[Rfam]
RNA sequence: UGGUCCGAGGAGCGUUGCGACAAACCGGUGAGCCGCCACAGUGCGGUGCCCGUCUUGCCAGGCUCGGACAAUGGCUCCCCAGCCAUGUCAACGGCGCUCACCCGAA
Numbered sequence: 001u002g003g004u005c006c007g008a009g010g011a012g013c014g015u016u017g018c019g020a021c022a023a024a025c026c027g028g029u030g031a032g033c034c035g036c037c038a039c040a041g042u043g044c045g046g047u048g049c050c051c052g053u054c055u056u057g058c059c060a061g062g063c064u065c066g067g068a069c070a071a072u073g074g075c076u077c078c079c080c081a082g083c084c085a086u087g088u089c090a091a092c093g094g095c096g097c098u099c100a101c102c103c104g105a106a
Stems, first nucleotide, its partner, number of pairs: 003069006021057003026052003